Class I RNA from Dictyostelium: a 56-nucleotide RNA sequence from Tieghemostelium lacteum. About the family: Dictyostelium Class I RNA was first reported for Aspegren et al. 2004 in Dictyostelium discoideum. Sucgang et al. 2011 identify putative homologs of Class I RNA in D. discoideum and D. purpureum. The literature on the family includes a 2021 paper in Genome Res by Kjellin et al., "Abundantly expressed class of noncoding RNAs conserved through the multicellular evolution of dictyostelid social amoebas".

RNA sequence: GAACUUCUUACAGCAAUUCAAACAAAUUCAAAUGUUCUGAAAUCCCUCGAGUUCUG
Numbered sequence: 001g002a003a004c005u006u007c008u009u010a011c012a013g014c015a016a017u018u019c020a021a022a023c024a025a026a027u028u029c030a031a032a033u034g035u036u037c038u039g040a041a042a043u044c045c046c047u048c049g050a051g052u053u054c055u056g
Base pairs, nucleotide, nucleotide: 001054002053003052004051005050006049